[Rfam]
RNA sequence: GCGAGAACCAUUUGAAUCAAGUAGUGUAGUGAUUCACAUGGUUCUCACAAAC
Numbered sequence: 001g002c003g004a005g006a007a008c009c010a011u012u013u014g015a016a017u018c019a020a021g022u023a024g025u026g027u028a029g030u031g032a033u034u035c036a037c038a039u040g041g042u043u044c045u046c047a048c049a050a051a052c
Stems, first nucleotide, its partner, number of pairs: 001048001003046009013036007
The family of this 52-nucleotide sequence from Caiophora lateritia is "Plastid-ccsA-ndhD-1 3UTR RNA".
Plastid-ccsA-ndhD-1 is a non-coding RNA (ncRNA) recognised in plastids. It was found in the three prime untranslated region (3UTR) of ccsA and ndhD genes, its 3UTR location suggests a role in transcript maturation.
Taxonomically the source falls in Caiophora (Eukaryota, Embryophyta, Tracheophyta, Loasaceae).
The family's consensus secondary structure was predicted with LocARNA.
It is annotated as a cis-regulatory element.
The family has 488 seed sequences and 1,322 matches in Rfam 15.1.